[Rfam]
RNA sequence: CUGACUGCGCUUGGGUUGAAAUCGGUUUGGAUUGCCCAGCCUUUUUGUGCACGAAGACGCUGCGCAAAGGGGAGCGCGUGACAGUCAA
Numbered sequence: 001c002u003g004a005c006u007g008c009g010c011u012u013g014g015g016u017u018g019a020a021a022u023c024g025g026u027u028u029g030g031a032u033u034g035c036c037c038a039g040c041c042u043u044u045u046u047g048u049g050c051a052c053g054a055a056g057a058c059g060c061u062g063c064g065c066a067a068a069g070g071g072g073a074g075c076g077c078g079u080g081a082c083a084g085u086c087a088a
Stems, first nucleotide, its partner, number of pairs: 002087004006078005012038004020033004040072011